[Rfam]
Background:
A member of the RNA family "terC RNA" from a Caulobacteraceae bacterium, 65 nucleotides long. It scores 41 bits against the family's covariance model. Rfam classes the family as a cis-regulatory element. The family has 129 seed sequences and 1,112 matches in Rfam 15.1.

RNA sequence: GAUGCGGACCGGGCCCCUCUGGUGACGAGCAACCUCUGUUGCGGGUCAUGAUGUCGGACGUAUCA
Number, nucleotide and partner (000 for none) at each position: 001g000002a000003u000004g000005c000006g059007g000008a000009c057010c056011g055012g054013g000014c000015c000016c000017c000018u000019c000020u000021g000022g049023u048024g047025a046026c045027g000028a000029g042030c041031a040032a039033c038034c000035u000036c000037u000038g033039u032040u031041g030042c029043g000044g000045g026046u025047c024048a023049u022050g000051a000052u000053g000054u012055c011056g010057g009058a000059c006060g000061u000062a000063u000064c000065a000